[Rfam]
RNA sequence: AAGGCUUCAAUAUCAAUGAGGUUUUGCUUCCACUUAUAUAAAUGUGUUUAGUAAAGUUUUUAUUGAAGCCGAUAAAUUUGUUCCCCUCGCUAUCCAAUGCUGCAAUUUGUGUGCUGUAUUAGGACGUCGGGGUACUAAAUUC
Dot-bracket structure: (.(((..(((((...(......((((((...((............))..))))))..)..)))))..)))..)......((.((((.((...(((.(....(((.......))).....).)))))..)))).)).......
Numbered sequence: 001a002a003g004g005c006u007u008c009a010a011u012a013u014c015a016a017u018g019a020g021g022u023u024u025u026g027c028u029u030c031c032a033c034u035u036a037u038a039u040a041a042a043u044g045u046g047u048u049u050a051g052u053a054a055a056g057u058u059u060u061u062a063u064u065g066a067a068g069c070c071g072a073u074a075a076a077u078u079u080g081u082u083c084c085c086c087u088c089g090c091u092a093u094c095c096a097a098u099g100c101u102g103c104a105a106u107u108u109g110u111g112u113g114c115u116g117u118a119u120u121a122g123g124a125c126g127u128c129g130g131g132g133u134a135c136u137a138a139a140u141u142c
Stems, first nucleotide, its partner, number of pairs: 001073001003070003008065005016058001023055006032047002080135002083132004088126002093124003097120001102114003
This 142-nucleotide RNA sequence from Lupinus angustifolius belongs to the Rfam family "Small nucleolar RNA snoR136". By type it is an H/ACA-box small nucleolar RNA. The source organism's lineage runs through Eukaryota, Viridiplantae, eudicotyledons, Genisteae and Lupinus. Gene Ontology terms of the family: nucleolus and RNA processing.